[Rfam]
RNA: RNA anti-toxin A
RNA sequence: GAAUGUAGAUGAAAAGAGAGAGAUGCGUCAACAUACCUCUCUAGUGUAGAGCCGUUUGAGACGGUGACCAAUUUAGUUAUAAAAAA
Dot-bracket structure: ......................(((......)))................((((((...)))))).....................
Numbered sequence: 001g002a003a004u005g006u007a008g009a010u011g012a013a014a015a016g017a018g019a020g021a022g023a024u025g026c027g028u029c030a031a032c033a034u035a036c037c038u039c040u041c042u043a044g045u046g047u048a049g050a051g052c053c054g055u056u057u058g059a060g061a062c063g064g065u066g067a068c069c070a071a072u073u074u075a076g077u078u079a080u081a082a083a084a085a086a
Stems, first nucleotide, its partner, number of pairs: 023034003051065006